[Rfam]
RNA: Ribosomal protein L20 leader
RNA sequence: AAAAUAAAGCAGAAGUUAUCCGCUUCUCACCUUGCGGCAAAAGUCGGUAGGGUCAAUAAUGUGUAAACAUUUAGAGUGGAUAGUUUUGCGGCUAUCUACUUUUUUUAUGCUGU
Dot-bracket structure: ..........((((((.....)))))).(((..((.((....))..))..))).....................((((((((((......)))))))))).............